[Rfam]
RNA sequence: UGCACCUAAAAAGCGUUUUCCUGUUGGUAGAAAAGUGCUCUGGAAAAUCGUAGUUGUGUGCUAAAGCAAAAUUUCUUUCCAUUGCAAGUGACUUGAUUCAUCCUAAGAGAGUCUUUGUCCAUUUAUUUGGUGAACAGUU
Numbered sequence: 001u002g003c004a005c006c007u008a009a010a011a012a013g014c015g016u017u018u019u020c021c022u023g024u025u026g027g028u029a030g031a032a033a034a035g036u037g038c039u040c041u042g043g044a045a046a047a048u049c050g051u052a053g054u055u056g057u058g059u060g061c062u063a064a065a066g067c068a069a070a071a072u073u074u075c076u077u078u079c080c081a082u083u084g085c086a087a088g089u090g091a092c093u094u095g096a097u098u099c100a101u102c103c104u105a106a107g108a109g110a111g112u113c114u115u116u117g118u119c120c121a122u123u124u125a126u127u128u129g130g131u132g133a134a135c136a137g138u139u
Stems, first nucleotide, its partner, number of pairs: 002061004006056001013051003016047005023038002026036001076133002079130003086124005091118002096112004
Record summary:
The family of this 139-nucleotide sequence from Drosophila willistoni is "Small nucleolar RNA psi28S-3316". Rfam's curators write: psi28S-3316 is a member of the H/ACA class of snoRNA. This family is responsible for guiding the modification of uridine 3316 in Drosophila 28S rRNA to pseudouridine. Rfam links the family to the GO terms RNA processing and nucleolus. By type it is an H/ACA-box small nucleolar RNA. The family has 33 seed sequences and 85 matches in Rfam 15.1. Rfam's curators put it in the seed alignment.